[Rfam]
RNA sequence: AUACAAUGGCAGGGGAGCUGGUAUUGCCAGCUGAGAGUAAGAAAUAAAUUCUUAGACCCUUUAACCUGAUCUGGAUAAUGCCAGCGUAGGAACAUGCUUUGAAAGCUAAUUU
Numbered sequence: 001a002u003a004c005a006a007u008g009g010c011a012g013g014g015g016a017g018c019u020g021g022u023a024u025u026g027c028c029a030g031c032u033g034a035g036a037g038u039a040a041g042a043a044a045u046a047a048a049u050u051c052u053u054a055g056a057c058c059c060u061u062u063a064a065c066c067u068g069a070u071c072u073g074g075a076u077a078a079u080g081c082c083a084g085c086g087u088a089g090g091a092a093c094a095u096g097c098u099u100u101g102a103a104a105g106c107u108a109a110u111u112u
Stems, first nucleotide, its partner, number of pairs: 006100001008098003011060004017031005038054005065090004071084004

Notes: Rfam assigns this 112-nucleotide sequence from Clostridium liquoris to the family "TPP riboswitch aptamer (THI element)". The base pairs follow the family's consensus structure, which is taken from published work. Taxonomically the source falls in Clostridium (Bacteria, Bacillati, Bacillota, Clostridia).